[Rfam]
RNA sequence: UGAGUGUUAUGAUGAUGGAAUCUAUUCAGAUUCUUAGUCUAGCUCUGGUCUACCGCCGAUUUAAUCGGCGG
Numbered sequence: 001u002g003a004g005u006g007u008u009a010u011g012a013u014g015a016u017g018g019a020a021u022c023u024a025u026u027c028a029g030a031u032u033c034u035u036a037g038u039c040u041a042g043c044u045c046u047g048g049u050c051u052a053c054c055g056c057c058g059a060u061u062u063a064a065u066c067g068g069c070g071g
Stems, first nucleotide, its partner, number of pairs: 002045004011039003017034006053071008
RNA: L17 ribosomal protein downstream element
Organism: Streptococcus varani